[Rfam]
RNA sequence: AAGCACUUGAUACUAACCAAGCUAUCUGUAUCCUGAGCUGCUCCAGAAGGUUGGGAUGUACCUUGUGAUAGCUGGGUUUUAUAAGUGCAAUAUUAAAGUAAACCAUGAGUCUUUUAAGCCCAGCAUGUUGAGGUGAGCACUCUGGGUUAUAACUCAAAGGUACAGUC
Numbered sequence: 001a002a003g004c005a006c007u008u009g010a011u012a013c014u015a016a017c018c019a020a021g022c023u024a025u026c027u028g029u030a031u032c033c034u035g036a037g038c039u040g041c042u043c044c045a046g047a048a049g050g051u052u053g054g055g056a057u058g059u060a061c062c063u064u065g066u067g068a069u070a071g072c073u074g075g076g077u078u079u080u081a082u083a084a085g086u087g088c089a090a091u092a093u094u095a096a097a098g099u100a101a102a103c104c105a106u107g108a109g110u111c112u113u114u115u116a117a118g119c120c121c122a123g124c125a126u127g128u129u130g131a132g133g134u135g136a137g138c139a140c141u142c143u144g145g146g147u148u149a150u151a152a153c154u155c156a157a158a159g160g161u162a163c164a165g166u167c
Stems, first nucleotide, its partner, number of pairs: 003088006015078004020073007027060007035052002038049002102161003123140001126137001128135001141158001143156005
Rfam assigns this 167-nucleotide sequence from Vombatus ursinus to the family "Small Cajal body specific RNA 1".
Rfam's curators write: scaRNAs are a specific class of small nuclear RNAs which localise to the Cajal bodies and guide the modification of RNA polymerase II transcribed spliceosomal RNAs U1, U2, U4, U5 and U12. ACA35 belong to the H/ACA box class of guide RNAs as it has the predicted hairpin-hinge-hairpin-tail structure, conserved H/ACA-box motifs and is found associated with GAR1. It is predicted to guide pseudouridylation of the U2 spliceosomal snRNA at residue U89.
A search with the family's covariance model found it, with a score of 132 bits.
Rfam 15.1 lists 715 matches to the family in 617 species.
The organism belongs to Vombatus, within Eukaryota.
Gene Ontology terms of the family: nucleolus, Cajal body and RNA processing.